Notes: A member of the RNA family "Alphaproteobacteria transfer-messenger RNA" from alpha proteobacterium BAL199, 359 nucleotides long. NCBI's taxonomy places the organism under Bacteria, Pseudomonadati, Pseudomonadota, Alphaproteobacteria.

RNA sequence: CCCCUUUCGUUCCAUCAGUGAACCGCUUAUAUGUAUGAGCGUCGGCGACGGUCGACUACGGCGAUAAACGGGCGACAGAAUAAGCGUAGCGGACCCGGGGGCAGUACCCGGCGCCUCCACCAAAUUUCCCUGAAAGCGUCAGGGUGUACGGGGGCGAAAUAGGAUCGACGCGCGUGGUAAAAGCCGUCUUUUCGCUCGGCAUGGCACCACCGUUAUCGGGCCAUAUGAUAGUUGCGAAUGACAACUAUGCUGGGGAACUCCGCGCCGCUGCUUAAGCGGUAAGGAACCCUGUUCAAUCCGUUGCGGUUAGCGUCGUAACGUGGGGCUCGCGGGCCGCCUAGCAACAGAAGGCCCGCACU
Numbered sequence: 001c002c003c004c005u006u007u008c009g010u011u012c013c014a015u016c017a018g019u020g021a022a023c024c025g026c027u028u029a030u031a032u033g034u035a036u037g038a039g040c041g042u043c044g045g046c047g048a049c050g051g052u053c054g055a056c057u058a059c060g061g062c063g064a065u066a067a068a069c070g071g072g073c074g075a076c077a078g079a080a081u082a083a084g085c086g087u088a089g090c091g092g093a094c095c096c097g098g099g100g101g102c103a104g105u106a107c108c109c110g111g112c113g114c115c116u117c118c119a120c121c122a123a124a125u126u127u128c129c130c131u132g133a134a135a136g137c138g139u140c141a142g143g144g145u146g147u148a149c150g151g152g153g154g155c156g157a158a159a160u161a162g163g164a165u166c167g168a169c170g171c172g173c174g175u176g177g178u179a180a181a182a183g184c185c186g187u188c189u190u191u192u193c194g195c196u197c198g199g200c201a202u203g204g205c206a207c208c209a210c211c212g213u214u215a216u217c218g219g220g221c222c223a224u225a226u227g228a229u230a231g232u233u234g235c236g237a238a239u240g241a242c243a244a245c246u247a248u249g250c251u252g253g254g255g256a257a258c259u260c261c262g263c264g265c266c267g268c269u270g271c272u273u274a275a276g277c278g279g280u281a282a283g284g285a286a287c288c289c290u291g292u293u294c295a296a297u298c299c300g301u302u303g304c305g306g307u308u309a310g311c312g313u314c315g316u317a318a319c320g321u322g323g324g325g326c327u328c329g330c331g332g333g334c335c336g337c338c339u340a341g342c343a344a345c346a347g348a349a350g351g352c353c354c355g356c357a358c359u
Stems, first nucleotide, its partner, number of pairs: 041056005060196005070189005076183001085174003089171003095111005112156007197212003202223003207219002323339004329356006